[Rfam]
RNA sequence: AAUGCACCAAUUUGUAAGUCGCUCUGGAUAAGAGCGUCUGCUAAAUGAUUCUCU
Numbered sequence: 001a002a003u004g005c006a007c008c009a010a011u012u013u014g015u016a017a018g019u020c021g022c023u024c025u026g027g028a029u030a031a032g033a034g035c036g037u038c039u040g041c042u043a044a045a046u047g048a049u050u051c052u053c054u
Stems, first nucleotide, its partner, number of pairs: 013043001014041003020036006
About this RNA
UnaL2 LINE 3' element: a 54-nucleotide RNA from Coregonus sp. 'balchen'. Rfam classes the family as a cis-regulatory element. The organism belongs to Coregonus, within Eukaryota. The eel long interspersed element (LINE) UnaL2 and its partner short interspersed element (SINE) share a conserved 3' tail containing a stem-loop that is critical for their retrotransposition. Presumably, the first step of retrotransposition is the recognition of their 3' tails by UnaL2-encoded reverse transcriptase. The solution structure of a 17-nucleotide RNA derived from the 3' tail of UnaL2 was determined by NMR. Gene Ontology term of the family: transposition, RNA-mediated. It scores 64 bits against the family's covariance model.